[Rfam]
The record is a 105-nucleotide sequence from Amphibalanus amphitrite, which matches "Potassium channel RNA editing signal" in Rfam.
The family's consensus secondary structure is taken from published work.
It is annotated as a cis-regulatory element.
Lineage of the source: Eukaryota > Eumetazoa > Thecostraca > Thoracicalcarea > Amphibalanus.
About the family: This family represents a group of sequences related to the human potassium channel Kv1.1 hairpin element which directs the efficient modification of an adenosine to inosine by an adenosine deaminase acting on RNA (ADAR). The ADAR modification causes an isoleucine/valine recoding event which lies in the ion-conducting pore of the potassium channel.
RNA sequence: GUCUGCCACAGACCGGUCGGCGUCUGGGGGAAGAUUGUCGGCUCACUGUGCGCCAUUGCCGGUGUGCUGACCAUUGCGCUGCCCGUGCCGGUCAUUGUGUCAAAC
Numbered sequence: 001g002u003c004u005g006c007c008a009c010a011g012a013c014c015g016g017u018c019g020g021c022g023u024c025u026g027g028g029g030g031a032a033g034a035u036u037g038u039c040g041g042c043u044c045a046c047u048g049u050g051c052g053c054c055a056u057u058g059c060c061g062g063u064g065u066g067c068u069g070a071c072c073a074u075u076g077c078g079c080u081g082c083c084c085g086u087g088c089c090g091g092u093c094a095u096u097g098u099g100u101c102a103a104a105c
Base pairs, nucleotide, nucleotide: 001105002104004102005101007099008098009097010096011095015093016092017091018090020088021087022086023085028068029067031065040054041053042052